A member of the RNA family "Small nucleolar RNA SNORA38" from Molossus molossus, 131 nucleotides long. The base pairs follow the family's consensus structure, which was predicted with RNAfold. A search with the family's covariance model found it, with a score of 138 bits. Rfam links the family to the GO terms Cajal body, nucleolus and RNA processing. About the family: ACA38 is a member of the H/ACA class of snoRNA that guide the sites of modification of uridines to pseudouridines. Rfam classes the family as an H/ACA-box small nucleolar RNA.
RNA sequence: CCCUCCUACAAAGGCAUAUCUGUGGUUCCCUGUCUUUGGACAUAUAAGAAUUGGAGGCAAAGAAAUGUGAACUUGGAGAAGUCUAGAGCCAGCUUGUUCCUUGCGGGCUCAAGAUCAACCAUCCGACAUAG
Number, nucleotide and partner (000 for none) at each position: 001c000002c057003c056004u055005c054006c053007u000008a000009c000010a000011a000012a000013g000014g000015c000016a043017u042018a000019u040020c039021u038022g000023u000024g030025g029026u000027u000028c000029c025030c024031u000032g000033u000034c000035u000036u000037u000038g021039g020040a019041c000042a017043u016044a000045u000046a000047a000048g000049a000050a000051u000052u000053g006054g005055a004056g003057g002058c000059a000060a000061a000062g000063a000064a000065a000066u000067g000068u000069g124070a000071a122072c000073u121074u000075g000076g000077a000078g000079a000080a000081g000082u000083c000084u000085a000086g000087a000088g000089c000090c000091a109092g108093c107094u106095u105096g104097u103098u000099c000100c000101u000102u000103g097104c096105g095106g094107g093108c092109u091110c000111a000112a000113g000114a000115u000116c000117a000118a000119c000120c000121a073122u071123c000124c069125g000126a000127c000128a000129u000130a000131g000